[Rfam]
RNA: Purine riboswitch aptamer
RNA sequence: GAAGGUAAUUGAAAAGAUCCUCAUAUAUCGUCGGAAAUAUGGUCCGACCGUUUCUACCUAAUCACCGUAAACGAUUAGACUAUGAGGGAAAGCAGAGGAGGG
Numbered sequence: 001g002a003a004g005g006u007a008a009u010u011g012a013a014a015a016g017a018u019c020c021u022c023a024u025a026u027a028u029c030g031u032c033g034g035a036a037a038u039a040u041g042g043u044c045c046g047a048c049c050g051u052u053u054c055u056a057c058c059u060a061a062u063c064a065c066c067g068u069a070a071a072c073g074a075u076u077a078g079a080c081u082a083u084g085a086g087g088g089a090a091a092g093c094a095g096a097g098g099a100g101g102g
Stems, first nucleotide, its partner, number of pairs: 018088008030048006058078006